[Rfam]
RNA sequence: UUUUCGGAAUGAAAAAACACGGCCGGGUUGGUAGUCCCGGCGCGCUUACCCGGCAGGGUAAACGUCAGUAACCUUCCCCCCUCGGGAUGUCCGUCAUUCCAGUUAAAUUA
Numbered sequence: 001u002u003u004u005c006g007g008a009a010u011g012a013a014a015a016a017a018c019a020c021g022g023c024c025g026g027g028u029u030g031g032u033a034g035u036c037c038c039g040g041c042g043c044g045c046u047u048a049c050c051c052g053g054c055a056g057g058g059u060a061a062a063c064g065u066c067a068g069u070a071a072c073c074u075u076c077c078c079c080c081c082u083c084g085g086g087a088u089g090u091c092c093g094u095c096a097u098u099c100c101a102g103u104u105a106a107a108u109u110a
Base pairs, nucleotide, nucleotide: 004102006100007099008098009097010096011095022041023040024039025038026037027036042065043064044063046061047060048059049058050057051056075087076086077085078084
RNA: azaaromatic riboswitch aptamer (yjdF RNA)
Organism: Pelotomaculum propionicicum